[Rfam]
RNA sequence: GGUCGAUGAUGACUAGUGCAAGGCCUGAGGGCACAGGGGAUUACACUCCACUACUUUCUUGGCUCCCAGCAGUCCUUCUUCUGUCAUGCCAUAGUAGAGCUAUGAUUGAGGAGGAGGUUGCUGACAGUUUGGGACUGAUUCAGUUCCAGUUCUCCACAGUGAAGGGAGUUGUGGCACUGAAUGUCGUCCAACAGAACUAAUUAAGAGGAGCUCGUGGUAGUGGUGUGUCUUAAUUAGUUGUGCGUGAUGUAAAGUUUUCAAGCUGAGACC
Dot-bracket structure: ((((.................................(.(((..((.(((((..........(((((((((((......((.(((((((.........).)))))).)).......))))))).......(.(((.(........(((...((((.........))))...))).........).)))).................))))........))))).))...................))).)................))))
Source information
Small Cajal body specific RNA 6: a 270-nucleotide sequence from Ceuthmochares aereus. It is annotated as a small Cajal body RNA. Pairs were carried over by alignment from the consensus structure, which is taken from published work. About the family: U88 is small Cajal body specific RNA (scaRNA). scaRNAs are a novel class of small nuclear RNAs which localise to the Cajal bodies. U88 is found associated with both fibrillarin and Gar1p and co-localises with coilin in Cajal bodies. Its family is annotated with nucleolus and RNA processing in the Gene Ontology. The family has 17 seed sequences and 1,309 matches in Rfam 15.1. On this family, see Darzacq et al., EMBO J 2002: "Cajal body-specific small nuclear RNAs: a novel class of 2'-O-methylation and pseudouridylation guide RNAs".